Small nucleolar RNA SNORD46: a 107-nucleotide sequence from Acipenser ruthenus. Rfam's curators write: U40 is a C/D box small nucleolar RNA, also known as snoZ153 in plants. The human sequence has also been annotated in the sequence databases as U46. U40 is encoded in intron 2 of the ribosomal protein S8 gene in human, and is hypothesised to guide methylation of 2'-O-ribose residues on 28S ribosomal RNA. This family represents vertebrate U40. The literature on the family includes a 1996 paper in J Mol Biol by Nicoloso et al., "Intron-encoded, antisense small nucleolar RNAs: the characterization of nine novel species points to their direct role as guides for the 2'-O-ribose methylation of rRNAs". It is annotated as a C/D-box small nucleolar RNA.
[Rfam]
RNA sequence: AAUGUGGAUGAUGAAAACGUGACCUUAGGCAGGCUUGUUUUGAUCGUUUUGGUCAAUGUUUCAAACCUGCCAAUGUUAGGCCUUGUCAUAGUUACACUGAUCACAUU
Numbered sequence: 001a002a003u004g005u006g007g008a009u010g011a012u013g014a015a016a017a018c019g020u021g022a023c024c025u026u027a028g029g030c031a032g033g034c035u036u037g038u039u040u041u042g043a044u045c046g047u048u049u050u051g052g053u054c055a056a057u058g059u060u061u062c063a064a065a066c067c068u069g070c071c072a073a074u075g076u077u078a079g080g081c082c083u084u085g086u087c088a089u090a091g092u093u094a095c096a097c098u099g100a101u102c103a104c105a106u107u
Base pairs, nucleotide, nucleotide: 001107002106003105004104005103006102